[Rfam]
RNA sequence: AAUAUAUAGACAAACGCUGGGACUCUUGAGGUCCUUGAGGAAAGUCCAUGCUCGCACAGUCUGAGAUGACUGUAGUGUUCAUUCUUAGGGAAUAAAUAACCUAAGGUAGUACUUGUACUAACGGCGGAUACUAUAUCUAAGUCUUAUGAUAUGAUAUAGUCCAUAAAGUGCCACAGUGACGAAUUCUUUGGAAACGAGGAAGUGAAACGCGGUAAACCCAAUGAGCGAGAAACCCAAAUUUUGGUAGGGGAGUUCCAACUUCGAGAAAUGAAUUGGAGUGGAGACCAGUAAUGGUAGAUAAAUGUUUGUCGCUUAGGAAACUAAGAACAGAACAUGGCUUAUUUAU
Numbered sequence: 001a002a003u004a005u006a007u008a009g010a011c012a013a014a015c016g017c018u019g020g021g022a023c024u025c026u027u028g029a030g031g032u033c034c035u036u037g038a039g040g041a042a043a044g045u046c047c048a049u050g051c052u053c054g055c056a057c058a059g060u061c062u063g064a065g066a067u068g069a070c071u072g073u074a075g076u077g078u079u080c081a082u083u084c085u086u087a088g089g090g091a092a093u094a095a096a097u098a099a100c101c102u103a104a105g106g107u108a109g110u111a112c113u114u115g116u117a118c119u120a121a122c123g124g125c126g127g128a129u130a131c132u133a134u135a136u137c138u139a140a141g142u143c144u145u146a147u148g149a150u151a152u153g154a155u156a157u158a159g160u161c162c163a164u165a166a167a168g169u170g171c172c173a174c175a176g177u178g179a180c181g182a183a184u185u186c187u188u189u190g191g192a193a194a195c196g197a198g199g200a201a202g203u204g205a206a207a208c209g210c211g212g213u214a215a216a217c218c219c220a221a222u223g224a225g226c227g228a229g230a231a232a233c234c235c236a237a238a239u240u241u242u243g244g245u246a247g248g249g250g251a252g253u254u255c256c257a258a259c260u261u262c263g264a265g266a267a268a269u270g271a272a273u274u275g276g277a278g279u280g281g282a283g284a285c286c287a288g289u290a291a292u293g294g295u296a297g298a299u300a301a302a303u304g305u306u307u308g309u310c311g312c313u314u315a316g317g318a319a320a321c322u323a324a325g326a327a328c329a330g331a332a333c334a335u336g337g338c339u340u341a342u343u344u345a346u
Base pairs, nucleotide, nucleotide: 004346005345006344008342009310010309011308012307013306014305015304017037019035020034021033022032042340043339044338046337047336048335049334050333051229052228053227054226055225056073057072058071059070060069061068079224080223081222082221083220084105085104086103087102088101089100106122107120108119109118110117111116123219124218126162127161128160129159134156135155136154137153141150142149143148168217169216170213171212172211185200186199187198188197189196190195233249234248235247253283254282255281256280257279259278260277284295285294286293287292312325313324314323315322316321
Bacterial RNase P class B: a 346-nucleotide RNA sequence from Mycoplasma sp. CAG:877. From the family's description: Ribonuclease P (RNase P) is a ubiquitous endoribonuclease, found in archaea, bacteria and eukarya as well as chloroplasts and mitochondria. Its best characterised activity is the generation of mature 5'-ends of tRNAs by cleaving the 5'-leader elements of precursor-tRNAs. Cellular RNase Ps are ribonucleoproteins. RNA from bacterial RNase Ps retains its catalytic activity in the absence of the protein subunit, i.e. it is a ribozyme. Isolated eukaryotic and archaeal RNase P RNA has not been shown to retain its catalytic function, but is still essential for the catalytic activity of the holoenzyme. Although the archaeal and eukaryotic holoenzyme s have a much greater protein content than the bacterial ones, the RNA cores from all the three lineages are homologous -- helices corresponding to P1, P2, P3, P4, and P10/11 are common to all cellular RNase P RNAs. Yet, there is considerable sequence variation, particularly among the eukaryotic RNAs. Pairs were carried over by alignment from the consensus structure, which is taken from published work. The literature on the family includes a 1998 paper in Annu Rev Biochem by Frank and Pace, "Ribonuclease P: unity and diversity in a tRNA processing ribozyme". It scores 289 bits against the family's covariance model.